[Rfam]
RNA sequence: AAAGAACACAUUAAUUACCCCUGAGGCCAUGGUAUGAACAAAAACUUUGCAAAACCAAGUUAGCACACCCUAGAAUGGUUCUAGCAUGAUUACUAACCUAUGGAUUUGAUACCAGUUGAUGGGAAACCCCG
Numbered sequence: 001a002a003a004g005a006a007c008a009c010a011u012u013a014a015u016u017a018c019c020c021c022u023g024a025g026g027c028c029a030u031g032g033u034a035u036g037a038a039c040a041a042a043a044a045c046u047u048u049g050c051a052a053a054a055c056c057a058a059g060u061u062a063g064c065a066c067a068c069c070c071u072a073g074a075a076u077g078g079u080u081c082u083a084g085c086a087u088g089a090u091u092a093c094u095a096a097c098c099u100a101u102g103g104a105u106u107u108g109a110u111a112c113c114a115g116u117u118g119a120u121g122g123g124a125a126a127c128c129c130c131g
Stems, first nucleotide, its partner, number of pairs: 009121008022108004027103006048086002053080002056077002060073004
Shown here is a 131-nucleotide RNA from Vitis vinifera, a member of the family "MIR845_2 microRNA precursor family".
For this family Rfam cites "The grapevine genome sequence suggests ancestral hexaploidization in major angiosperm phyla" (Jaillon et al., Nature, 2007).